[Rfam]
RNA: Purine riboswitch aptamer
Organism: Paenibacillus uliginis
RNA sequence: ACUUGGAAAUUGGUACAAAUUCGUAUAUCCCUAAAAAUAUGGUUUGGGGGUUUCUACAGGGGACCGUAAAUUCCUGGCUACGAACGGGGUGCUUUUGCAU
Numbered sequence: 001a002c003u004u005g006g007a008a009a010u011u012g013g014u015a016c017a018a019a020u021u022c023g024u025a026u027a028u029c030c031c032u033a034a035a036a037a038u039a040u041g042g043u044u045u046g047g048g049g050g051u052u053u054c055u056a057c058a059g060g061g062g063a064c065c066g067u068a069a070a071u072u073c074c075u076g077g078c079u080a081c082g083a084a085c086g087g088g089g090u091g092c093u094u095u096u097g098c099a100u
Stems, first nucleotide, its partner, number of pairs: 020084006029049007059075005